About this RNA
Rfam assigns this 109-nucleotide RNA from Phalacrocorax carbo to the family "Small nucleolar RNA SNORD90". Rfam classes the family as a C/D-box small nucleolar RNA. Rfam describes the family as follows. snoRNA HBII-295 belongs to the family of C/D snoRNAs. It is the human orthologue of the mouse MBII-295 and has no identified RNA target. It scores 58 bits against the family's covariance model.

[Rfam]
RNA sequence: AACUCCCUUUUUUGUGUCUAAUGAUGAAGCUUCAUAGGGCAGAUUCUGAGCUGAGAAAUUAAAUUUCUCUCCACUGAUACUCUUUAUAUGCCAUCUGAAGACACUUCCU
Dot-bracket structure: .............((((((.........(...(((((((..(..((.(.(..(((((.......)))))..).).)))..))))...)))...)....)))))).....